[Rfam]
Rfam assigns this 373-nucleotide sequence from Vagococcus fluvialis to the family "Bacterial RNase P class B". Taxonomically the source falls in Vagococcus (Bacteria, Bacillota, Lactobacillales, Enterococcaceae). By type it is a ribozyme. The family is grouped with related families in Rfam's "RNaseP clan". Rfam's curators write: Ribonuclease P (RNase P) is a ubiquitous endoribonuclease, found in archaea, bacteria and eukarya as well as chloroplasts and mitochondria. Gene Ontology terms of the family: ribonuclease P activity, tRNA processing and dimeric ribonuclease P complex.

RNA sequence: GUUUUCGGAUAAUCGCAGUUAACUUUUAUAGUUAGUUGAGGAAAGUCCAUGCUCGCACAAACUGAGAUGUUUGUAGUGUUCGUGCUUAAUGAAACAAUAAGUUAAGGUAUUCUUCUUAGGAAGAGUAACGGCAGAAAAAACAGCUAAGGUGUAAACUAUGCUGGAGUAUUCUUGAAAGUGCCACAGUGACGAAGUAAUUUUAGAAAUAAAAUUAGUGGAACGGGUAAACCCCUCGAGCGAGCAACCCAAACUUAUGGUAGGGGCACCUUUUUCAGGGAAUUGAACUUAGAAAAGGGACAGAGUAUUCUGUAGACAGAUGAUUAUCGUUAGUAGUUGUCCUGACAAUUACUAAUACAGAACAUGGCUUAUAGAA
Numbered sequence: 001g002u003u004u005u006c007g008g009a010u011a012a013u014c015g016c017a018g019u020u021a022a023c024u025u026u027u028a029u030a031g032u033u034a035g036u037u038g039a040g041g042a043a044a045g046u047c048c049a050u051g052c053u054c055g056c057a058c059a060a061a062c063u064g065a066g067a068u069g070u071u072u073g074u075a076g077u078g079u080u081c082g083u084g085c086u087u088a089a090u091g092a093a094a095c096a097a098u099a100a101g102u103u104a105a106g107g108u109a110u111u112c113u114u115c116u117u118a119g120g121a122a123g124a125g126u127a128a129c130g131g132c133a134g135a136a137a138a139a140a141c142a143g144c145u146a147a148g149g150u151g152u153a154a155a156c157u158a159u160g161c162u163g164g165a166g167u168a169u170u171c172u173u174g175a176a177a178g179u180g181c182c183a184c185a186g187u188g189a190c191g192a193a194g195u196a197a198u199u200u201u202a203g204a205a206a207u208a209a210a211a212u213u214a215g216u217g218g219a220a221c222g223g224g225u226a227a228a229c230c231c232c233u234c235g236a237g238c239g240a241g242c243a244a245c246c247c248a249a250a251c252u253u254a255u256g257g258u259a260g261g262g263g264c265a266c267c268u269u270u271u272u273c274a275g276g277g278a279a280u281u282g283a284a285c286u287u288a289g290a291a292a293a294g295g296g297a298c299a300g301a302g303u304a305u306u307c308u309g310u311a312g313a314c315a316g317a318u319g320a321u322u323a324u325c326g327u328u329a330g331u332a333g334u335u336g337u338c339c340u341g342a343c344a345a346u347u348a349c350u351a352a353u354a355c356a357g358a359a360c361a362u363g364g365c366u367u368a369u370a371g372a373a
Stems, first nucleotide, its partner, number of pairs: 004373003007369001008325007016038006043367003047364005052241005057074006080236003084232001085106006107129001108127008130231002133172004141163004148157003178229002180225003195214008245262003266296007297310005327352009